[Rfam]
RNA sequence: UUUCCCAAGGAGCGUUGCGACAAAGUAAGAUUAAAACAUUAAUCGGUAUUUUGCCAGGCUUGGAGAAUUCACACCGCAACUGCGCUCACGUUAC
Numbered sequence: 001u002u003u004c005c006c007a008a009g010g011a012g013c014g015u016u017g018c019g020a021c022a023a024a025g026u027a028a029g030a031u032u033a034a035a036a037c038a039u040u041a042a043u044c045g046g047u048a049u050u051u052u053g054c055c056a057g058g059c060u061u062g063g064a065g066a067a068u069u070c071a072c073a074c075c076g077c078a079a080c081u082g083c084g085c086u087c088a089c090g091u092u093a094c
Stems, first nucleotide, its partner, number of pairs: 002066002005063004021053006
Dot-bracket structure: .((.((((............((((((.....................))))))......)))).))............................
RNA: SAH (S-adenosyl-L-homocysteine) riboswitch aptamer